[Rfam]
RNA sequence: ACAAUCGGUCAGAGGUCGAGUAUCCUAACGGGCUUUUCGACUGACCCAUAACUAUAGGAGAUGUGUUAGUGGCCCGUAUCGCUGGCAUUAACAUUUCCGAU
Numbered sequence: 001a002c003a004a005u006c007g008g009u010c011a012g013a014g015g016u017c018g019a020g021u022a023u024c025c026u027a028a029c030g031g032g033c034u035u036u037u038c039g040a041c042u043g044a045c046c047c048a049u050a051a052c053u054a055u056a057g058g059a060g061a062u063g064u065g066u067u068a069g070u071g072g073c074c075c076g077u078a079u080c081g082c083u084g085g086c087a088u089u090a091a092c093a094u095u096u097c098c099g100a101u
Base pairs, nucleotide, nucleotide: 004049005048007046008045009044010043011042012041024085025084029076030075031074032073037100038099039098
About this RNA:
A member of the RNA family "Alpha operon ribosome binding site" from Psychrosphaera saromensis, 101 nucleotides long. The bacterial alpha operon ribosome binding site is surrounded by this complex pseudoknotted structure. Translation of the mRNA produces 4 ribosomal protein products, one of which (S4) acts as a translational repressor by binding to the nested pseudoknot region. The mechanism of repression is thought to involve a conformational switch in the pseudoknot region and ribosome entrapment. The source organism's lineage runs through Bacteria, Pseudomonadati, Alteromonadales, Pseudoalteromonadaceae and Psychrosphaera. It scores 76 bits against the family's covariance model. A reference for the family is Schlax et al. (2001), "Translational repression of the Escherichia coli alpha operon mRNA: importance of an mRNA conformational switch and a ternary entrapment complex", J Biol Chem.